[Rfam]
RNA sequence: CUGCACGAGCUACCCGGGCUUCUCUGAUAGAUCCGUGACGUGAAUGUCCCAAUGCACGUGCGAAAACCACGCCGUUCGUGUUGCAGUUUAGCCCUAAUUUUCAAUGGCUCAAGCUGUGUCAAAGAAACGGCAAAAUUC
Dot-bracket structure: ..(((((.((.....((((.((.(...............).))..))))....)).))))).........((((((..((.((((((...(((............)))....)))))).))....)))))).......
This 138-nucleotide RNA from Arachis hypogaea belongs to the Rfam family "small nucleolar RNA snoR134". By type it is an H/ACA-box small nucleolar RNA. A search with the family's covariance model found it, with a score of 81 bits.